[Rfam]
RNA sequence: GCGUCCGGCCCGUGGACGCCGCUGCCCAUCCGCGCCGACUCCCGGUUACUCUGGCGCCGUGCGGCAUCCCCGCCCGCCCGGGACGCCGCAUAGCCGACAGCCGUCGCACCUAGGGAGCCCCUUCAUG
Number, nucleotide and partner (000 for none) at each position: 001g000002c000003g000004u000005c000006c000007g000008g000009c000010c000011c000012g000013u000014g000015g000016a000017c000018g000019c000020c000021g000022c000023u000024g000025c000026c000027c000028a000029u000030c000031c000032g000033c000034g000035c000036c000037g000038a000039c000040u000041c000042c000043c000044g000045g000046u000047u000048a000049c000050u000051c000052u000053g000054g000055c000056g000057c000058c000059g000060u090061g089062c088063g087064g000065c000066a000067u083068c082069c081070c080071c000072g000073c000074c000075c000076g000077c000078c000079c000080g070081g069082g068083a067084c000085g000086c000087c063088g062089c061090a060091u000092a000093g107094c106095c000096g105097a104098c103099a000100g000101c000102c000103g098104u097105c096106g094107c093108a000109c000110c000111u000112a000113g000114g000115g000116a000117g000118c000119c000120c000121c000122u000123u000124c000125a000126u000127g000

Streptomyces-metH RNA: a 127-nucleotide RNA from Streptomyces filipinensis.